[Rfam]
RNA sequence: GCCUCCUUAGCUCAGUUGGUUAGAGCACCCGACUCAUAAUCGGUAGGUCCACAGUUCAAGUCUGUGAGGAGGCA
Numbered sequence: 001g002c003c004u005c006c007u008u009a010g011c012u013c014a015g016u017u018g019g020u021u022a023g024a025g026c027a028c029c030c031g032a033c034u035c036a037u038a039a040u041c042g043g044u045a046g047g048u049c050c051a052c053a054g055u056u057c058a059a060g061u062c063u064g065u066g067a068g069g070a071g072g073c074a
Base pairs, nucleotide, nucleotide: 001073002072003071004070005069006068007067010026011025012024013023029043030042031041032040050066051065052064053063054062

The family of this 74-nucleotide sequence from Thiomicrospira sp. WB1 is "tRNA". Taxonomically the source falls in Thiomicrospira (Bacteria, Pseudomonadati, Gammaproteobacteria, Thiotrichales). Rfam classes the family as a transfer RNA. A search with the family's covariance model found it, with a score of 69 bits.